A member of the RNA family "Ribosomal protein L10 leader" from Roseiflexus sp. RS-1, 147 nucleotides long.
Rfam's curators put it in the seed alignment.
By type it is a cis-regulatory leader.
[Rfam]
RNA sequence: AGAUAUAUAUGCUAAGCGCCGCAGACAGCGGGUGCGUUUGCUUAAUGGCUGCGUGCCGCCCGCCGAGGCAGCUUCCCAGGUCGAUGCGACUGUAAGUUCGCGGGUUGCUGCGUCUGUGCGCGGCAACCCGCGUUUUUAUCUUCCAGA
Numbered sequence: 001a002g003a004u005a006u007a008u009a010u011g012c013u014a015a016g017c018g019c020c021g022c023a024g025a026c027a028g029c030g031g032g033u034g035c036g037u038u039u040g041c042u043u044a045a046u047g048g049c050u051g052c053g054u055g056c057c058g059c060c061c062g063c064c065g066a067g068g069c070a071g072c073u074u075c076c077c078a079g080g081u082c083g084a085u086g087c088g089a090c091u092g093u094a095a096g097u098u099c100g101c102g103g104g105u106u107g108c109u110g111c112g113u114c115u116g117u118g119c120g121c122g123g124c125a126a127c128c129c130g131c132g133u134u135u136u137u138a139u140c141u142u143c144c145a146g147a
Stems, first nucleotide, its partner, number of pairs: 028063006034041002099132014